Source information: This 117-nucleotide sequence from Pseudorhodobacter antarcticus belongs to the Rfam family "ALIL pseudoknot". The organism belongs to Pseudorhodobacter, within Bacteria. The family has 26 seed sequences and 2,146 matches in Rfam 15.1.

RNA sequence: AGCUUAUUUUGCGCAGGCGGAACUCGACCGCCCGUUCAAGCCAUGAUCGGCUUUAUUGAUGAUCAUCGCGUGGUCCAUGGGGUCGAGUCGAUCUGCAGGGUGCUGCCGAUUGCCCCA
Numbered sequence: 001a002g003c004u005u006a007u008u009u010u011g012c013g014c015a016g017g018c019g020g021a022a023c024u025c026g027a028c029c030g031c032c033c034g035u036u037c038a039a040g041c042c043a044u045g046a047u048c049g050g051c052u053u054u055a056u057u058g059a060u061g062a063u064c065a066u067c068g069c070g071u072g073g074u075c076c077a078u079g080g081g082g083u084c085g086a087g088u089c090g091a092u093c094u095g096c097a098g099g100g101u102g103c104u105g106c107c108g109a110u111u112g113c114c115c116c117a
Base pairs, nucleotide, nucleotide: 016032017031018030019029020028078117079116080115081114082113089112090111092109093108095106096105097104098103